A member of the RNA family "Small nucleolar RNA snoR109" from Leersia perrieri, 89 nucleotides long. Gene Ontology terms of the family: nucleolus and RNA processing. The family has 6 seed sequences and 680 matches in Rfam 15.1. A search with the family's covariance model found it, with a score of 38 bits. For this family Rfam cites "Experimental RNomics: identification of 140 candidates for small non-messenger RNAs in the plant Arabidopsis thaliana" (Marker et al., Curr Biol, 2002). The organism belongs to Leersia, within Eukaryota.
[Rfam]
RNA sequence: AGGCUGUAGCCAAAUCAAUAUGGAAGUAAAAACUGGUCGGGUUGCCAAUUGAUCCCAUGGUCAUUCCGCUUACCGAACUUCCCAUAUCC
Numbered sequence: 001a002g003g004c005u006g007u008a009g010c011c012a013a014a015u016c017a018a019u020a021u022g023g024a025a026g027u028a029a030a031a032a033c034u035g036g037u038c039g040g041g042u043u044g045c046c047a048a049u050u051g052a053u054c055c056c057a058u059g060g061u062c063a064u065u066c067c068g069c070u071u072a073c074c075g076a077a078c079u080u081c082c083c084a085u086a087u088c089c
Stems, first nucleotide, its partner, number of pairs: 022082006035070003039066004044061003